Molybdenum/Tungsten riboswitch aptamer (Moco RNA motif): a 148-nucleotide sequence from Moritella sp. PE36. Lineage of the source: Bacteria > Pseudomonadota > Alteromonadales > Moritellaceae > Moritella. Rfam 15.1 lists 1,248 matches to the family in 836 species.
[Rfam]
RNA sequence: AUAUUAAUCAAACUCCGAUCCUUAACGAUCUAAAUUUAUAAAAUUAAAUAUGAUCUUAAGGACUCAUAGCAUUUUAAAUUUGCUAUAAGGGUUUAAUCAGAAAUGAUUAGGCCUCCCGUAUUUGGAAAGGUGUUUAUGCAACUUCAAG
Numbered sequence: 001a002u003a004u005u006a007a008u009c010a011a012a013c014u015c016c017g018a019u020c021c022u023u024a025a026c027g028a029u030c031u032a033a034a035u036u037u038a039u040a041a042a043a044u045u046a047a048a049u050a051u052g053a054u055c056u057u058a059a060g061g062a063c064u065c066a067u068a069g070c071a072u073u074u075u076a077a078a079u080u081u082g083c084u085a086u087a088a089g090g091g092u093u094u095a096a097u098c099a100g101a102a103a104u105g106a107u108u109a110g111g112c113c114u115c116c117c118g119u120a121u122u123u124g125g126a127a128a129g130g131u132g133u134u135u136a137u138g139c140a141a142c143u144u145c146a147a148g
Stems, first nucleotide, its partner, number of pairs: 004141001011134003015130002019062006027055004034049004066086005089114011115125002